[Rfam]
RNA sequence: AUUUUUAAAAAAAUAGGGAACUCAGUGCAUGAAGGUUUAACCAGCCUUGCUGAGACCGGUUUGAAUGUAGAGUUUUUAUUAUAUUGGAUACUGUAUAAUAAAAACUUCCUAUUGAUAGCGAUUGAGAUAGGAUAGAAACAGAUGUUUCAAAUACAAGAACCAGGUGCCGAUUUAUAUGAGCAAAAAGUAGACCUAACAAGUCGGAGGGAUAAUUGAGUAAGUUGGCAGUAAUAUGUUGGCUAAUGCGGCUUUUAAGUUCUAUAUAGGGAUAUGUAGAUUACUAAAAGUAAAUCCAAAACAACCUCUUGCCGAUGAUGCUAAGAAAUUAGCGUAUAAGACAAAUCAAGGUCGUACAAGUACCACAAAAGGCGAAAACUUUAAGGUAUUACAAAUAAUUGCUGUAACAAAGGUGAUUACUUCUGUAACGAACUUAAAGCAAGUAUAAUAAAUAUCCUGAAUGGUAUGUGGGAAAGUUAGAGGUAGCAAUCCUCUCAGAGCAUCGUGCAGUUUAACGGUUAGGGGCGACUUAUAGUUUAACUACAAGUGGCAACAGACGGUUUAACUGCUAGGGUAUACAGGUUAGGAUGACGGUCCGAAACCUCAGGUAUAUUUUCUCUGUUACAGAAUAUUGCGUAGUAUAAAGUAAGUACGACGAAGGUCGCCCUAUUAUGUUUUUUUAUA
Numbered sequence: 001a002u003u004u005u006u007a008a009a010a011a012a013a014u015a016g017g018g019a020a021c022u023c024a025g026u027g028c029a030u031g032a033a034g035g036u037u038u039a040a041c042c043a044g045c046c047u048u049g050c051u052g053a054g055a056c057c058g059g060u061u062u063g064a065a066u067g068u069a070g071a072g073u074u075u076u077u078a079u080u081a082u083a084u085u086g087g088a089u090a091c092u093g094u095a096u097a098a099u100a101a102a103a104a105c106u107u108c109c110u111a112u113u114g115a116u117a118g119c120g121a122u123u124g125a126g127a128u129a130g131g132a133u134a135g136a137a138a139c140a141g142a143u144g145u146u147u148c149a150a151a152u153a154c155a156a157g158a159a160c161c162a163g164g165u166g167c168c169g170a171u172u173u174a175u176a177u178g179a180g181c182a183a184a185a186a187g188u189a190g191a192c193c194u195a196a197c198a199a200g201u202c203g204g205a206g207g208g209a210u211a212a213u214u215g216a217g218u219a220a221g222u223u224g225g226c227a228g229u230a231a232u233a234u235g236u237u238g239g240c241u242a243a244u245g246c247g248g249c250u251u252u253u254a255a256g257u258u259c260u261a262u263a264u265a266g267g268g269a270u271a272u273g274u275a276g277a278u279u280a281c282u283a284a285a286a287g288u289a290a291a292u293c294c295a296a297a298a299c300a301a302c303c304u305c306u307u308g309c310c311g312a313u314g315a316u317g318c319u320a321a322g323a324a325a326u327u328a329g330c331g332u333a334u335a336a337g338a339c340a341a342a343u344c345a346a347g348g349u350c351g352u353a354c355a356a357g358u359a360c361c362a363c364a365a366a367a368g369g370c371g372a373a374a375a376c377u378u379u380a381a382g383g384u385a386u387u388a389c390a391a392a393u394a395a396u397u398g399c400u401g402u403a404a405c406a407a408a409g410g411u412g413a414u415u416a417c418u419u420c421u422g423u424a425a426c427g428a429a430c431u432u433a434a435a436g437c438a439a440g441u442a443u444a445a446u447a448a449a450u451a452u453c454c455u456g457a458a459u460g461g462u463a464u465g466u467g468g469g470a471a472a473g474u475u476a477g478a479g480g481u482a483g484c485a486a487u488c489c490u491c492u493c494a495g496a497g498c499a500u501c502g503u504g505c506a507g508u509u510u511a512a513c514g515g516u517u518a519g520g521g522g523c524g525a526c527u528u529a530u531a532g533u534u535u536a537a538c539u540a541c542a543a544g545u546g547g548c549a550a551c552a553g554a555c556g557g558u559u560u561a562a563c564u565g566c567u568a569g570g571g572u573a574u575a576c577a578g579g580u581u582a583g584g585a586u587g588a589c590g591g592u593c594c595g596a597a598a599c600c601u602c603a604g605g606u607a608u609a610u611u612u613u614c615u616c617u618g619u620u621a622c623a624g625a626a627u628a629u630u631g632c633g634u635a636g637u638a639u640a641a642a643g644u645a646a647g648u649a650c651g652a653c654g655a656a657g658g659u660c661g662c663c664c665u666a667u668u669a670u671g672u673u674u675u676u677u678u679a680u681a
Stems, first nucleotide, its partner, number of pairs: 007678006013668001016665003021054005033047004057163001058161005071106006078099007086091001107132007117122001135148005172642002183630001186629001190350004196343001200339003203306005220241008248288006258277007267294003307371004317330005354473001360468005453605004477492001479490002494617003497566003569613003577606001578601002580598001581596001583594004650661004